RNA sequence: GUUCCCACUGCUGGACCAAGGGUACAAGGUUAUUAAUCAGUGGAACGUGGAAUUCCUGGAGAAUUGCCUUUGUGAAAAGCUGGAAAUAGUUUGUUUAAAAUCUCUCUUACAGUUUUCCAUGUAAGUAUUCAAUUUACACUUUUGUCGCAGGUUGAUCUUUUUAAAAAUCA
Numbered sequence: 001g002u003u004c005c006c007a008c009u010g011c012u013g014g015a016c017c018a019a020g021g022g023u024a025c026a027a028g029g030u031u032a033u034u035a036a037u038c039a040g041u042g043g044a045a046c047g048u049g050g051a052a053u054u055c056c057u058g059g060a061g062a063a064u065u066g067c068c069u070u071u072g073u074g075a076a077a078a079g080c081u082g083g084a085a086a087u088a089g090u091u092u093g094u095u096u097a098a099a100a101u102c103u104c105u106c107u108u109a110c111a112g113u114u115u116u117c118c119a120u121g122u123a124a125g126u127a128u129u130c131a132a133u134u135u136a137c138a139c140u141u142u143u144g145u146c147g148c149a150g151g152u153u154g155a156u157c158u159u160u161u162u163a164a165a166a167a168u169c170a
Stems, first nucleotide, its partner, number of pairs: 006083001010080003016074001017072008026064001042057002045054001089168004094164002100158001103155001
The family of this 170-nucleotide RNA sequence from Loxodonta africana is "ODC internal ribosome entry site (IRES)". The family has 13 seed sequences and 437 matches in Rfam 15.1. Gene Ontology term of the family: ribosome binding. A search with the family's covariance model found it, with a score of 81 bits. For this family Rfam cites "Alternative splicing facilitates internal ribosome entry on the ornithine decarboxylase mRNA" (Pyronnet et al., Cell Mol Life Sci, 2005).